[Rfam]
RNA sequence: UGGUGAUGAUGAAGUUUACUCCAAAACAUUCGCGGUUUCCACCAGAAGAACUGCUCUCGUUCUAAAGAUGGCCCAAUUGCCCUUCCUUGGAUGUCUGAACCA
Numbered sequence: 001u002g003g004u005g006a007u008g009a010u011g012a013a014g015u016u017u018a019c020u021c022c023a024a025a026a027c028a029u030u031c032g033c034g035g036u037u038u039c040c041a042c043c044a045g046a047a048g049a050a051c052u053g054c055u056c057u058c059g060u061u062c063u064a065a066a067g068a069u070g071g072c073c074c075a076a077u078u079g080c081c082c083u084u085c086c087u088u089g090g091a092u093g094u095c096u097g098a099a100c101c102a
Stems, first nucleotide, its partner, number of pairs: 001102004048062004

The family of this 102-nucleotide RNA from Candidula unifasciata is "Small nucleolar RNA SNORD14". It is annotated as a C/D-box small nucleolar RNA. U14 small nucleolar RNA (U14 snoRNA) is required for early cleavages of eukaryotic precursor rRNAs. The literature on the family includes a 1996 paper in Nucleic Acids Res by Samarsky et al., "An essential domain in Saccharomyces cerevisiae U14 snoRNA is absent in vertebrates, but conserved in other yeasts". Taxonomically the source falls in Candidula (Eukaryota, Metazoa, Spiralia, Panpulmonata).